[Rfam]
RNA sequence: CAAGUCCUCGACGGGGUCUCCUCCUCCCGCCUCGUCGAGAUGCGGUCAGCUUUCCUCCUCCUAGUGCUGACCGACUUCAAAAGCACCCGCCGGCAUCCUCCCCCGGCGGGUGCUUUUU
Numbered sequence: 001c002a003a004g005u006c007c008u009c010g011a012c013g014g015g016g017u018c019u020c021c022u023c024c025u026c027c028c029g030c031c032u033c034g035u036c037g038a039g040a041u042g043c044g045g046u047c048a049g050c051u052u053u054c055c056u057c058c059u060c061c062u063a064g065u066g067c068u069g070a071c072c073g074a075c076u077u078c079a080a081a082a083g084c085a086c087c088c089g090c091c092g093g094c095a096u097c098c099u100c101c102c103c104c105g106g107c108g109g110g111u112g113c114u115u116u117u118u
Stems, first nucleotide, its partner, number of pairs: 007039010044072007083113011
Source information
Shown here is a 118-nucleotide sequence from Chelativorans petroleitrophicus, a member of the family "Alphaproteobacterial ar14". It is annotated as a small RNA. The pairing is the family consensus, mapped onto this sequence. Smr14C2 was renamed NfeR1 (Nodule Formation Efficiency RNA) highly expressed in salt stress and during the symbiotic interaction on legume roots. The literature on the family includes a 2012 paper in RNA Biol by del Val et al., "A survey of sRNA families in alpha-proteobacteria". Gene Ontology term of the family: biological process involved in symbiotic interaction.